Source information:
This 95-nucleotide RNA sequence from Marivibrio halodurans belongs to the Rfam family "Bacterial small signal recognition particle RNA". Rfam's curators write: The signal recognition particle (SRP) is a universally conserved ribonucleoprotein involved in the co-translational targeting of proteins to membranes. The literature on the family includes a 2003 paper in Nucleic Acids Res by Rosenblad et al., "SRPDB: Signal Recognition Particle Database". It scores 63 bits against the family's covariance model. Pairs were carried over by alignment from the consensus structure, which is taken from published work. Rfam classes the family as a non-coding RNA gene.
RNA sequence: AGGCCGGACGGCGGGCGGGCGCCUCGCCAACCCGGUCAGGUCCGGAAGGAAGCAGCCGUAACGAGUUUCCGCCCGGGUCGUCGCUCCGGUCUUCC
Numbered sequence: 001a002g003g004c005c006g007g008a009c010g011g012c013g014g015g016c017g018g019g020c021g022c023c024u025c026g027c028c029a030a031c032c033c034g035g036u037c038a039g040g041u042c043c044g045g046a047a048g049g050a051a052g053c054a055g056c057c058g059u060a061a062c063g064a065g066u067u068u069c070c071g072c073c074c075g076g077g078u079c080g081u082c083g084c085u086c087c088g089g090u091c092u093u094c095c
Stems, first nucleotide, its partner, number of pairs: 002091005009083005016075006023065004033058004041050003
Dot-bracket structure: .(((((..(((((..((((((.((((......((((....(((....)))....))))...))))....))))))...)))))...)))))....